Overview: Ascomycota telomerase RNA: a 214-nucleotide part of an RNA from Diaporthe helianthi. Lineage of the source: Eukaryota > Ascomycota > sordariomyceta > Sordariomycetidae > Diaporthe. A reference for the family is Qi et al. (2013), "The common ancestral core of vertebrate and fungal telomerase RNAs", Nucleic Acids Res. Rfam links the family to the GO terms telomerase catalytic core complex, telomerase activity and telomere maintenance via telomerase.
RNA sequence: UCCCCUACAGUUCUCCGAUUCUCGUUUUCCGCAAGGAAUGUCCUCCUCGGACCCCUCUGCUGGGCUGGGUCACCACAAUACGUCGCAUCUCGUACCUGCAUCAGGAACCUCGAUGAUCGCCGCGCUCAGGUUAUAUUGUGCCACGGUUGUCAGUAGCUGACAAGCCAGUCCCAUGCGAGGGUACGCGUCUCGGAACUUAACCCUAAUCUAUUUG
Numbered sequence: 001u002c003c004c005c006u007a008c009a010g011u012u013c014u015c016c017g018a019u020u021c022u023c024g025u026u027u028u029c030c031g032c033a034a035g036g037a038a039u040g041u042c043c044u045c046c047u048c049g050g051a052c053c054c055c056u057c058u059g060c061u062g063g064g065c066u067g068g069g070u071c072a073c074c075a076c077a078a079u080a081c082g083u084c085g086c087a088u089c090u091c092g093u094a095c096c097u098g099c100a101u102c103a104g105g106a107a108c109c110u111c112g113a114u115g116a117u118c119g120c121c122g123c124g125c126u127c128a129g130g131u132u133a134u135a136u137u138g139u140g141c142c143a144c145g146g147u148u149g150u151c152a153g154u155a156g157c158u159g160a161c162a163a164g165c166c167a168g169u170c171c172c173a174u175g176c177g178a179g180g181g182u183a184c185g186c187g188u189c190u191c192g193g194a195a196c197u198u199a200a201c202c203c204u205a206a207u208c209u210a211u212u213u214g
Stems, first nucleotide, its partner, number of pairs: 009197003015193004